Shown here is a 126-nucleotide sequence from Zizania palustris, a member of the family "Small nucleolar RNA snoR111". A reference for the family is Marker et al. (2002), "Experimental RNomics: identification of 140 candidates for small non-messenger RNAs in the plant Arabidopsis thaliana", Curr Biol. The match comes from Rfam's covariance-model search (46 bits). NCBI's taxonomy places the organism under Eukaryota, Poales, Poaceae, Oryzeae, Zizania. By type it is an H/ACA-box small nucleolar RNA.
RNA sequence: UCAAGAUGGUGGUACCAAAAUUGCUAUGGUGCCUUCAUCUUUGCAAGAAGGGAUAGAUUGACGCGGCAAGAUAUCGUUUCUGUUGCCAUGACUCCAGUAGGCAAUAUGAUUGUUGCUUGUGCACAG
Numbered sequence: 001u002c003a004a005g006a007u008g009g010u011g012g013u014a015c016c017a018a019a020a021u022u023g024c025u026a027u028g029g030u031g032c033c034u035u036c037a038u039c040u041u042u043g044c045a046a047g048a049a050g051g052g053a054u055a056g057a058u059u060g061a062c063g064c065g066g067c068a069a070g071a072u073a074u075c076g077u078u079u080c081u082g083u084u085g086c087c088a089u090g091a092c093u094c095c096a097g098u099a100g101g102c103a104a105u106a107u108g109a110u111u112g113u114u115g116c117u118u119g120u121g122c123a124c125a126g
Stems, first nucleotide, its partner, number of pairs: 004040006011033006065122001068118003073110004082105006